[Rfam]
RNA sequence: AGCAAUAGAAUAGCUUCUAAAGGGUGGACGGUAUAUCAUCCCCAAAUGAAAGGGGGUGAGGCCGGUGACAGUAUUUGAAUCACUAAUGCUUAUGAUUGCAUUUGCAACAUUGGUUGUUGUGAUCCUUACGUCAAAAGAAAAAUAAUCCACCCUUGCUCUAGAGAAGCAGGGUGGAUCCAUCAUUAUGUGUGAUCUGCCGCCCCCUUUAAAGGGCAGUCUAUUGUGUAAGCCGAUGGUGUUACCAGCACCGUCG
Numbered sequence: 001a002g003c004a005a006u007a008g009a010a011u012a013g014c015u016u017c018u019a020a021a022g023g024g025u026g027g028a029c030g031g032u033a034u035a036u037c038a039u040c041c042c043c044a045a046a047u048g049a050a051a052g053g054g055g056g057u058g059a060g061g062c063c064g065g066u067g068a069c070a071g072u073a074u075u076u077g078a079a080u081c082a083c084u085a086a087u088g089c090u091u092a093u094g095a096u097u098g099c100a101u102u103u104g105c106a107a108c109a110u111u112g113g114u115u116g117u118u119g120u121g122a123u124c125c126u127u128a129c130g131u132c133a134a135a136a137g138a139a140a141a142a143u144a145a146u147c148c149a150c151c152c153u154u155g156c157u158c159u160a161g162a163g164a165a166g167c168a169g170g171g172u173g174g175a176u177c178c179a180u181c182a183u184u185a186u187g188u189g190u191g192a193u194c195u196g197c198c199g200c201c202c203c204c205u206u207u208a209a210a211g212g213g214c215a216g217u218c219u220a221u222u223g224u225g226u227a228a229g230c231c232g233a234u235g236g237u238g239u240u241a242c243c244a245g246c247a248c249c250g251u252c253g
Stems, first nucleotide, its partner, number of pairs: 002224004007219003011215001017196001020154005026147002036059003040055004067129001070126002073123001080095003103121004168184002199214004231253010
Description
A member of the RNA family "BsrG" from Halalkalibacter okhensis, 253 nucleotides long. Rfam describes the family as follows. bsrE, bsrG and bsrH pair through intermolecular interactions with antisense sRNAs. They form type I toxin/antitoxin system that includes an mRNA encoding for a short, toxic peptide (bsrE, bsrG and bsrH) and an antitoxin that is comprised of an antisense RNA. bsrG encodes a 39-amino-acid toxin, and the 180 nucleotide antisense sRNA called SR4 acts as the antitoxin (they overlap by 123 nucleotides). SR4 interaction with the 3'UTR of bsrG RNA promotes bsrG degradation and inhibits its translation. BsrG interferes with cell envelope biosynthesis, causes membrane invaginations and delocalisation of the cell wall synthesis and initiates autolysis. bsrE RNA encodes 30 amino-acid toxin peptide. Its antitoxin gene, SR5 overlaps by 112 nucleotides at the 3' end of bsrE. SR5 also overlaps bsrG from nucleotide 163 to 52 (Rfam overlap check). The antitoxin SR5 promotes bsrE degradation but unlike SR4 it does not directly inhibits toxin mRNA translation. Rfam links the family to the GO terms toxin activity and autolysis. The literature on the family includes a 2008 paper in Gene by Saito et al., "Novel small RNA-encoding genes in the intergenic regions of Bacillus subtilis". Rfam 15.1 lists 614 matches to the family in 343 species. The match comes from Rfam's covariance-model search (95 bits).